[Rfam]
RNA sequence: GACCUCCUUGUGCUUACCACAGGCUGUGUUCUUACACUGACUGUAUAGAAAAGGGGGCAGUAUAAAACUACCCCAUAUAUACCUCGGCCUAGGCCAUUGUGCCUGCUUUGUAUUGUGAAUAGAGAGACUUGG
Numbered sequence: 001g002a003c004c005u006c007c008u009u010g011u012g013c014u015u016a017c018c019a020c021a022g023g024c025u026g027u028g029u030u031c032u033u034a035c036a037c038u039g040a041c042u043g044u045a046u047a048g049a050a051a052a053g054g055g056g057g058c059a060g061u062a063u064a065a066a067a068c069u070a071c072c073c074c075a076u077a078u079a080u081a082c083c084u085c086g087g088c089c090u091a092g093g094c095c096a097u098u099g100u101g102c103c104u105g106c107u108u109u110g111u112a113u114u115g116u117g118a119a120u121a122g123a124g125a126g127a128c129u130u131g132g
Stems, first nucleotide, its partner, number of pairs: 003057006020043003026037004071124001073122001075120002085110003090105005
RNA: Small nucleolar RNA SNORA51